Rfam assigns this 85-nucleotide sequence from Sediminihaliea albiluteola to the family "tRNA". Lineage of the source: Bacteria > Pseudomonadati > Pseudomonadota > Halieaceae > Sediminihaliea.
RNA sequence: GCCCGGAUGGUGAAAUUGGUAGACACAGGAGACUUAAAAUCUCCCGCCUAUUGCUGGCGUGCCGGUUCGAUUCCGGCUCCGGGCA
Numbered sequence: 001g002c003c004c005g006g007a008u009g010g011u012g013a014a015a016u017u018g019g020u021a022g023a024c025a026c027a028g029g030a031g032a033c034u035u036a037a038a039a040u041c042u043c044c045c046g047c048c049u050a051u052u053g054c055u056g057g058c059g060u061g062c063c064g065g066u067u068c069g070a071u072u073c074c075g076g077c078u079c080c081g082g083g084c085a
Stems, first nucleotide, its partner, number of pairs: 001084007010026003028044005061077005
Dot-bracket structure: (((((((..(((...........))).(((((.......)))))................(((((.......)))))))))))).
Rfam classes the family as a transfer RNA.